Histone 3' UTR stem-loop: a 46-nucleotide RNA sequence from Sinocyclocheilus grahami.
RNA sequence: ACAAAGGCUCUUUUAAGAGCCACCCAUGUUAUCUCUCACGGAGUAU
Numbered sequence: 001a002c003a004a005a006g007g008c009u010c011u012u013u014u015a016a017g018a019g020c021c022a023c024c025c026a027u028g029u030u031a032u033c034u035c036u037c038a039c040g041g042a043g044u045a046u
Stems, first nucleotide, its partner, number of pairs: 006021006
About the family: The mRNAs of metazoan histone genes lack a poly-A tail. 3' end processing occurs at a site between a highly conserved stem-loop (modelled by this family) and a purine rich region around 20 nts downstream (the histone downstream element, or HDE). The stem-loop is bound by a 31 kDa stem-loop binding protein (SLBP - also termed the histone hairpin binding protein, or HBP). Together with U7 snRNA binding of the HDE, SLBP binding nucleate s the formation of the processing complex. It scores 39 bits against the family's covariance model. By type it is a cis-regulatory element. The literature on the family includes a 1995 paper in Nucleic Acids Res by Williams and Marzluff, "The sequence of the stem and flanking sequences at the 3' end of histone mRNA are critical determinants for the binding of the stem-loop binding protein". The source organism's lineage runs through Eukaryota, Vertebrata, Gnathostomata, Actinopteri and Sinocyclocheilus.